[Rfam]
Nucleotides: 208
Stems, first nucleotide, its partner, number of pairs: 007100002015095004026082002029079003047069006103127007129140003156173007178205004189201004
Number, partner (000 for none) and nucleotide at each position: 001000c002000c003000a004000u005000c006000u007100a008099c009000g010000u011000u012000g013000a014000a015095c016094g017093g018092a019000a020000g021000a022000a023000g024000u025000a026082g027081c028000g029079g030078c031077u032000u033000u034000g035000g036000g037000a038000a039000a040000u041000c042000a043000g044000a045000g046000a047069g048068c049067u050066c051065c052064c053000g054000g055000a056000g057000g058000g059000u060000g061000c062000a063000a064052g065051g066050g067049a068048g069047u070000c071000a072000g073000a074000a075000a076000a077031a078030g079029c080000a081027g082026u083000g084000a085000a086000a087000a088000g089000u090000c091000g092018u093017c094016c095015g096000g097000a098000a099008g100007u101000u102000g103127a104126u105125u106124u107123u108122c109121u110000g111000a112000a113000u114000u115000u116000a117000a118000g119000u120000a121109g122108g123107a124106a125105g126104a127103u128000c129140c130139g131138a132000a133000u134000g135000c136000c137000g138131u139130c140129g141000u142000u143000a144000c145000c146000g147000g148000u149000g150000a151000a152000a153000g154000c155000g156173c157172a158171u159170c160169u161168u162167u163000g164000a165000a166000g167162a168161a169160a170159g171158a172157u173156g174000a175000a176000g177000u178205a179204a180203g181202g182000u183000g184000g185000u186000a187000c188000c189201g190200c191199g192198c193000g194000u195000g196000a197000a198192g199191c200190g201189u202181c203180c204179u205178u206000g207000u208000u

Shown here is a 208-nucleotide sequence from Holdemania filiformis, a member of the family "T-box leader". Taxonomically the source falls in Holdemania (Bacteria, Bacillati, Bacillota, Erysipelotrichia). The match comes from Rfam's covariance-model search (121 bits). The family's RNA type in Rfam is cis-regulatory leader.